[Rfam]
RNA sequence: GCCACCGAGGAGCGUUGCGACCCGAAUCGAGCUGAUUCGGGCCAGGCUCGGCGGCAGGGUCGACUUUUCCAACGGCGCUCACUCACG
Numbered sequence: 001g002c003c004a005c006c007g008a009g010g011a012g013c014g015u016u017g018c019g020a021c022c023c024g025a026a027u028c029g030a031g032c033u034g035a036u037u038c039g040g041g042c043c044a045g046g047c048u049c050g051g052c053g054g055c056a057g058g059g060u061c062g063a064c065u066u067u068u069c070c071a072a073c074g075g076c077g078c079u080c081a082c083u084c085a086c087g
Stems, first nucleotide, its partner, number of pairs: 002054002005051004021041008
The family of this 87-nucleotide RNA sequence from Thiocystis violascens is "SAH (S-adenosyl-L-homocysteine) riboswitch aptamer".
A search with the family's covariance model found it, with a score of 63 bits.